Small nucleolar RNA snR191: a 264-nucleotide RNA sequence from Penicillium vulpinum. By type it is an H/ACA-box small nucleolar RNA.
RNA sequence: UUCCAUCGCUAAGUCAAGGCCUCUUCCUGCGACUUCGGUCGUGCAUGACUCCGGUCGUGCUUGUUUCAAUGGAAUUCCGUCUGUUACAGCUUUGGUAUAUUAACACUGGCCCGCACCGAAUUUCGUUAUGAACCUAGGUUGACUUGCUUUCGUCUUGAAAGCCUGUCGCAAGGGCCAGCUGUGUUUUGUUUUUGAGUAGAAGUCUGCUUCUGCCUUUUUUUGGUGGCAUUGUGGCAGAAUUUCUUAGUAACAUCCCACACAUUC
Number, nucleotide and partner (000 for none) at each position: 001u000002u000003c095004c094005a093006u000007c000008g000009c000010u000011a000012a000013g000014u000015c000016a000017a082018g081019g080020c079021c000022u000023c000024u074025u073026c072027c071028u000029g058030c057031g056032a055033c054034u000035u000036c000037g000038g000039u000040c000041g000042u000043g000044c000045a000046u000047g000048a000049c000050u000051c000052c000053g000054g033055u032056c031057g030058u029059g000060c000061u000062u000063g000064u000065u000066u000067c000068a000069a000070u000071g027072g026073a025074a024075u000076u000077c000078c000079g020080u019081c018082u017083g000084u000085u000086a000087c000088a000089g000090c000091u000092u000093u005094g004095g003096u000097a000098u000099a000100u000101u000102a000103a000104c000105a000106c178107u177108g176109g175110c174111c173112c000113g000114c000115a139116c138117c137118g000119a000120a000121u000122u132123u131124c130125g000126u000127u000128a000129u000130g124131a123132a122133c000134c000135u000136a000137g117138g116139u115140u000141g167142a166143c000144u000145u000146g162147c161148u160149u159150u158151c157152g156153u000154c000155u000156u152157g151158a150159a149160a148161g147162c146163c000164u000165g000166u142167c141168g000169c000170a000171a000172g000173g111174g110175c109176c108177a107178g106179c000180u000181g258182u257183g256184u000185u000186u000187u252188g251189u250190u000191u000192u000193u000194g000195a000196g000197u000198a244199g243200a242201a241202g240203u000204c237205u236206g235207c234208u000209u000210c226211u225212g224213c223214c222215u000216u000217u000218u000219u000220u000221u000222g214223g213224u212225g211226g210227c000228a000229u000230u000231g000232u000233g000234g207235c206236a205237g204238a000239a000240u202241u201242u200243c199244u198245u000246a000247g000248u000249a000250a189251c188252a187253u000254c000255c000256c183257a182258c181259a000260c000261a000262u000263u000264c000
Description:
The base pairs follow the family's consensus structure, which was predicted with WAR. Rfam links the family to the GO terms RNA processing and nucleolus.